The family of this 101-nucleotide RNA from a Frankiales bacterium is "Guanidine-I riboswitch aptamer". Its family is annotated with regulation of gene expression in the Gene Ontology. The pairing is the family consensus, mapped onto this sequence. About the family: This family represents a conserved RNA structure found upstream of the ykkC and yxkD genes in Bacillus subtilis and related genes in other bacteria.
RNA sequence: GUGGGGCGCACCUAGGGUUCCGCCGUCCUCGGAUGGGCUGGUCCAAGAGGUGCAGGCAGGGCUGCGGCCUUGUUCCACGGCGGGAUAAAAGCCCGGGAGAU
Numbered sequence: 001g002u003g004g005g006g007c008g009c010a011c012c013u014a015g016g017g018u019u020c021c022g023c024c025g026u027c028c029u030c031g032g033a034u035g036g037g038c039u040g041g042u043c044c045a046a047g048a049g050g051u052g053c054a055g056g057c058a059g060g061g062c063u064g065c066g067g068c069c070u071u072g073u074u075c076c077a078c079g080g081c082g083g084g085a086u087a088a089a090a091g092c093c094c095g096g097g098a099g100a101u
Base pairs, nucleotide, nucleotide: 008053009052010051011050012049015044016043020041021040022038023036024035025034026033027032055074056073057072058071059070060069061068062067076096078099082094083093084092
Dot-bracket structure: .......(((((..((...((((((((....))))).).)).))....))))).((((((((....)))))))).(.[...(((.......))).)..]..
Notes
The family has 100 seed sequences and 1,509 matches in Rfam 15.1. On this family, see Barrick et al., Proc Natl Acad Sci U S A 2004: "New RNA motifs suggest an expanded scope for riboswitches in bacterial genetic control". It scores 81 bits against the family's covariance model.